The record is a 67-nucleotide RNA from Python bivittatus, which matches "MAT2A 3'UTR stem loop E" in Rfam. The family's RNA type in Rfam is cis-regulatory element. The family's consensus secondary structure is taken from published work.

RNA sequence: CCAGCAUUCCCUGAUAGGCCAAGGUGUCCUACAGAAAAGCCUUGGGUAUAACCUACAGGGGGUCUGG
Numbered sequence: 001c002c003a004g005c006a007u008u009c010c011c012u013g014a015u016a017g018g019c020c021a022a023g024g025u026g027u028c029c030u031a032c033a034g035a036a037a038a039g040c041c042u043u044g045g046g047u048a049u050a051a052c053c054u055a056c057a058g059g060g061g062g063u064c065u066g067g
Stems, first nucleotide, its partner, number of pairs: 001067004006063006015055004019045007026032002
A search with the family's covariance model found it, with a score of 88 bits.